[Rfam]
Nucleotides: 359
Base pairs, nucleotide, nucleotide: 001355002354003353004352005351006350007349020327021326022325023324024323025322026321029318032317033316034315035314036313037312038311039310040309041308042307045301046300047299048298049297050070051069052068053067054066057084058083059082060081061080062079115136116135117134118133119132120131137175138174139173140172141171142170144168145167147165148164149163150162154189155188156187157186158185159184192223193222194221195220196219197218198217199216200215204239205238206237207236208235209234240275241274242273243272244271245270246269247268248267250264252262255293256292257291258290259289260288261287332348334346335345336344
Number, partner (000 for none) and nucleotide at each position: 001355g002354g003353g004352g005351g006350c007349g008000u009000a010000a011000a012000g013000g014000g015000u016000u017000c018000g019000a020327c021326g022325g023324g024323g025322g026321a027000g028000c029318g030000a031000a032317g033316g034315g035314c036313c037312g038311a039310a040309a041308g042307u043000a044000g045301c046300g047299a048298g049297g050070c051069g052068a053067g054066g055000a056000c057084c058083c059082c060081a061080u062079c063000u064000u065000a066054c067053c068052u069051c070050g071000u072000u073000a074000a075000a076000a077000a078000u079062g080061g081060u082059g083058g084057g085000a086000a087000a088000a089000g090000a091000u092000a093000a094000c095000u096000g097000c098000c099000a100000a101000c102000g103000a104000a105000a106000a107000c108000u109000a110000c111000g112000c113000u114000u115136u116135a117134g118133c119132u120131g121000c122000u123000u124000a125000a126000u127000a128000a129000c130000g131120c132119a133118g134117c135116u136115a137175c138174g139173u140172c141171c142170u143000g144168a145167c146000g147165g148164a149163a150162g151000c152000u153000u154189g155188c156187c157186c158185g159184g160000g161000g162150c163149u164148u165147c166000u167145g168144u169000c170142g171141g172140g173139g174138c175137g176000u177000g178000a179000c180000c181000g182000g183000a184159c185158c186157g187156g188155g189154c190000u191000g192223g193222c194221u195220u196219a197218u198217g199216a200215a201000g202000g203000g204239u205238g206237u207236c208235c209234c210000g211000g212000c213000u214000c215200u216199u217198c218197a219196u220195a221194a222193g223192c224000g225000a226000g227000a228000u229000u230000u231000u232000a233000c234209g235208g236207g237206a238205u239204a240275g241274c242273c243272c244271g245270a246269u247268u248267g249000u250264g251000g252262c253000c254000u255293g256292c257291c258290g259289g260288u261287a262252g263000g264250c265000a266000c267248c268247a269246a270245u271244c272243g273242g274241g275240u276000g277000a278000a279000a280000g281000c282000a283000a284000a285000a286000a287261u288260a289259c290258c291257g292256g293255c294000u295000g296000c297049c298048c299047u300046c301045g302000g303000a304000g305000a306000a307042g308041c309040u310039u311038u312037c313036g314035g315034u316033u317032c318029u319000u320000g321026u322025c323024c324023u325022c326021c327020g328000g329000a330000c331000g332348g333000u334346g335345g336344g337000u338000u339000c340000g341000a342000u343000u344336c345335c346334c347000c348332c349007c350006g351005c352004c353003u354002c355001c356000a357000c358000c359000a